[Rfam]
Rfam assigns this 95-nucleotide RNA from Legionella drancourtii to the family "RAGATH-13 RNA". It is one of the family's seed sequences. The organism belongs to Legionella drancourtii, within Bacteria. It is annotated as a ribozyme.
Nucleotides: 095
Base pairs, nucleotide, nucleotide: 005095006094007093008092009091010090011089012088019067021065022064023063024062030039031038032037041061042060043059045058046057
Number, partner (000 for none) and nucleotide at each position: 001000a002000u003000u004000g005095a006094u007093u008092u009091g010090c011089c012088c013000c014000c015000c016000a017000g018000u019067u020000g021065g022064a023063g024062c025000c026000u027000u028000g029000u030039g031038g032037c033000g034000u035000a036000a037032g038031c039030c040000u041061g042060g043059u044000a045058u046057c047000g048000c049000u050000u051000u052000u053000g054000a055000g056000u057046g058045a059043g060042c061041c062024g063023c064022u065021c066000g067019a068000u069000c070000a071000a072000c073000a074000c075000u076000a077000a078000a079000c080000c081000a082000a083000a084000g085000u086000c087000a088012g089011g090010g091009c092008a093007a094006g095005u

The base pairs follow the family's consensus structure, which is taken from published work.